[Rfam]
RNA sequence: CCCAUAAGUAAUAAAAAGUUCGUUUAGGUCCUUUAAUUUUAUUUAAAGUAUCGGUUUGAUCUUUUCUAUUAAUUUAAUUCAAAAAACGGCAAGUUUUGGUCCCUUAACUUAUUUAAUUAGUGUUAGAUUGGUCCCUUAACUUAUUUAAUUAGUAUUAGUUUCGUCCCUAAACUUAACGCUUUUUUGAAUUAAAUUAACAUAAAUGAUUAAACCGAUACUUAAAAUAAAGUUAAGGGACCUAAACGAACCUUUUAUUACUUAUGAGA
Numbered sequence: 001c002c003c004a005u006a007a008g009u010a011a012u013a014a015a016a017a018g019u020u021c022g023u024u025u026a027g028g029u030c031c032u033u034u035a036a037u038u039u040u041a042u043u044u045a046a047a048g049u050a051u052c053g054g055u056u057u058g059a060u061c062u063u064u065u066c067u068a069u070u071a072a073u074u075u076a077a078u079u080c081a082a083a084a085a086a087c088g089g090c091a092a093g094u095u096u097u098g099g100u101c102c103c104u105u106a107a108c109u110u111a112u113u114u115a116a117u118u119a120g121u122g123u124u125a126g127a128u129u130g131g132u133c134c135c136u137u138a139a140c141u142u143a144u145u146u147a148a149u150u151a152g153u154a155u156u157a158g159u160u161u162c163g164u165c166c167c168u169a170a171a172c173u174u175a176a177c178g179c180u181u182u183u184u185u186g187a188a189u190u191a192a193a194u195u196a197a198c199a200u201a202a203a204u205g206a207u208u209a210a211a212c213c214g215a216u217a218c219u220u221a222a223a224a225u226a227a228a229g230u231u232a233a234g235g236g237a238c239c240u241a242a243a244c245g246a247a248c249c250u251u252u253u254a255u256u257a258c259u260u261a262u263g264a265g266a
Stems, first nucleotide, its partner, number of pairs: 003263006023243003027239003031235013046220002
The record is a 266-nucleotide sequence from Medicago truncatula, which matches "MIR2655 microRNA precursor family" in Rfam.
A search with the family's covariance model found it, with a score of 205 bits.